[Rfam]
A member of the RNA family "Glycine riboswitch aptamer" from Pseudarthrobacter enclensis, 95 nucleotides long. NCBI's taxonomy places the organism under Bacteria, Bacillati, Actinomycetes, Micrococcaceae, Pseudarthrobacter.
RNA sequence: GCAACUCUGGAAAGCAGCCAGGCUCGUUCCUGGCUCACCGACGGUGCAAGCGGCCCUGCCGCGGAAACUCUCAGGUCCACUACAGAGCGGGGAGG
Numbered sequence: 001g002c003a004a005c006u007c008u009g010g011a012a013a014g015c016a017g018c019c020a021g022g023c024u025c026g027u028u029c030c031u032g033g034c035u036c037a038c039c040g041a042c043g044g045u046g047c048a049a050g051c052g053g054c055c056c057u058g059c060c061g062c063g064g065a066a067a068c069u070c071u072c073a074g075g076u077c078c079a080c081u082a083c084a085g086a087g088c089g090g091g092g093a094g095g
Base pairs, nucleotide, nucleotide: 002090005087006086007085008084009083016035017034018033019032020031021030022029037076038075039074040072041071044070046068051063052062